[Rfam]
RNA sequence: CGUGGGGACUGCAAAUAUGCGUGGUCCCCGACAUUCAUCAUUAGGCAUAUUGCUUACUGGAGAGACAGAUGGCACUGACCGCAGAACAGAAAGCCGCGAUCGUCAACGAACACGGCCGUGGUGAA
Numbered sequence: 001c002g003u004g005g006g007g008a009c010u011g012c013a014a015a016u017a018u019g020c021g022u023g024g025u026c027c028c029c030g031a032c033a034u035u036c037a038u039c040a041u042u043a044g045g046c047a048u049a050u051u052g053c054u055u056a057c058u059g060g061a062g063a064g065a066c067a068g069a070u071g072g073c074a075c076u077g078a079c080c081g082c083a084g085a086a087c088a089g090a091a092a093g094c095c096g097c098g099a100u101c102g103u104c105a106a107c108g109a110a111c112a113c114g115g116c117c118g119u120g121g122u123g124a125a
Stems, first nucleotide, its partner, number of pairs: 007026006048078001059076002062073001
RNA: Ribosomal S15 leader
Organism: Halomonas halmophila